[Rfam]
RNA sequence: GUCUCUGGUCAGUUUUGCUGGUUUGCUUUCAGCUUGUCGAUGCGCCGCUGUGCAAAUCCAUGCAAAACUGAUCAUGGAG
Numbered sequence: 001g002u003c004u005c006u007g008g009u010c011a012g013u014u015u016u017g018c019u020g021g022u023u024u025g026c027u028u029u030c031a032g033c034u035u036g037u038c039g040a041u042g043c044g045c046c047g048c049u050g051u052g053c054a055a056a057u058c059c060a061u062g063c064a065a066a067a068c069u070g071a072u073c074a075u076g077g078a079g
Stems, first nucleotide, its partner, number of pairs: 003077002006074013020059002022056005028050001031049003

mir-19 microRNA precursor family: a 79-nucleotide RNA from Kryptolebias marmoratus. A reference for the family is Houbaviy et al. (2003), "Embryonic stem cell-specific MicroRNAs", Dev Cell. Its family is annotated with RISC complex and miRNA-mediated post-transcriptional gene silencing in the Gene Ontology. Lineage of the source: Eukaryota > Metazoa > Bilateria > Gnathostomata > Kryptolebias. The family's consensus secondary structure was predicted with RNAalifold.